RNA sequence: UGGCAGUGAUGACCUUCUUAGGACACCUUUGGAGCACCCAUGAAAUGAAAACUUCUGUCUGAGCCAU
Numbered sequence: 001u002g003g004c005a006g007u008g009a010u011g012a013c014c015u016u017c018u019u020a021g022g023a024c025a026c027c028u029u030u031g032g033a034g035c036a037c038c039c040a041u042g043a044a045a046u047g048a049a050a051a052c053u054u055c056u057g058u059c060u061g062a063g064c065c066a067u
Base pairs, nucleotide, nucleotide: 001066002065003064004063
RNA: Small nucleolar RNA SNORD58
Organism: Penelope pileata